[Rfam]
Small nucleolar RNA SNORA31: a 133-nucleotide sequence from Suricata suricatta. ACA31 (SNORA31) belongs to the H/ACA class of snoRNAs which are thought to guide the sites of modification of uridines to pseudouridines. ACA31 is predicted to guide the pseudouridylation of U3713 in 28S rRNA and U218 in 18S rRNA. This family includes the mouse homologue snoMBI-161. It scores 64 bits against the family's covariance model. The literature on the family includes a 2001 paper in EMBO J by Huttenhofer et al., "RNomics: an experimental approach that identifies 201 candidates for novel, small, non-messenger RNAs in mouse". The family's RNA type in Rfam is H/ACA-box small nucleolar RNA.
RNA sequence: AUGCAUCUGUUUGACAGACCUGGAGCAGCUCCCGUCUGCUGCUAAGGUUUCUGCUAGAGAUGCAAGAAAAAGUGUCCUCGCGCUUUCUGUCUGUCUGGUUGUGGCAGUUAAGAUUGAAUAGGGGAAUACAGGG
Numbered sequence: 001a002u003g004c005a006u007c008u009g010u011u012u013g014a015c016a017g018a019c020c021u022g023g024a025g026c027a028g029c030u031c032c033c034g035u036c037u038g039c040u041g042c043u044a045a046g047g048u049u050u051c052u053g054c055u056a057g058a059g060a061u062g063c064a065a066g067a068a069a070a071a072g073u074g075u076c077c078u079c080g081c082g083c084u085u086u087c088u089g090u091c092u093g094u095c096u097g098g099u100u101g102u103g104g105c106a107g108u109u110a111a112g113a114u115u116g117a118a119u120a121g122g123g124g125a126a127u128a129c130a131g132g133g
Stems, first nucleotide, its partner, number of pairs: 002064007012053002016050005024040005075125005083116001086113003091107005